[Rfam]
RNA sequence: UAUUUGGGACCCUAGACGACAACAGCUACAAUGGCCGCGGCGACGGAGGAUUGUCUCCCGAUGAGGCCGCCAUUCUAGCUGUUGUCGUCGAGGUGCUAAAGU
Numbered sequence: 001u002a003u004u005u006g007g008g009a010c011c012c013u014a015g016a017c018g019a020c021a022a023c024a025g026c027u028a029c030a031a032u033g034g035c036c037g038c039g040g041c042g043a044c045g046g047a048g049g050a051u052u053g054u055c056u057c058c059c060g061a062u063g064a065g066g067c068c069g070c071c072a073u074u075c076u077a078g079c080u081g082u083u084g085u086c087g088u089c090g091a092g093g094u095g096c097u098a099a100a101g102u
Stems, first nucleotide, its partner, number of pairs: 002102004007097002011093003015089014030074006037067002041063002044060003048056003
RNA: MIR5534 microRNA precursor family
Organism: Oryza nivara